[Rfam]
RNA: SAM riboswitch aptamer (S box leader)
RNA sequence: UUCUUAUCCAGAGAGGUGGAGGGACUGACCCUGUGAAGCCUCGGCAACCAGCACAUUUGUGCACGGUGCCAAUUUCAGGGAAGCUUAGGGAAUAAGCUCCGAAGAUGAGAA
Number, nucleotide and partner (000 for none) at each position: 001u111002u110003c109004u108005u107006a106007u105008c104009c000010a000011g000012a000013g042014a041015g040016g039017u038018g000019g000020a000021g031022g030023g029024a000025c078026u077027g076028a075029c023030c022031c021032u000033g000034u000035g000036a000037a000038g017039c016040c015041u014042c013043g070044g069045c068046a067047a000048c066049c065050a000051g062052c061053a060054c059055a000056u000057u000058u000059g054060u053061g052062c051063a000064c000065g049066g048067u046068g045069c044070c043071a000072a000073u000074u103075u028076c027077a026078g025079g100080g099081a098082a000083g097084c096085u095086u094087a093088g000089g000090g000091a000092a000093u087094a086095a085096g084097c083098u081099c080100c079101g000102a000103a074104g008105a007106u006107g005108a004109g003110a002111a001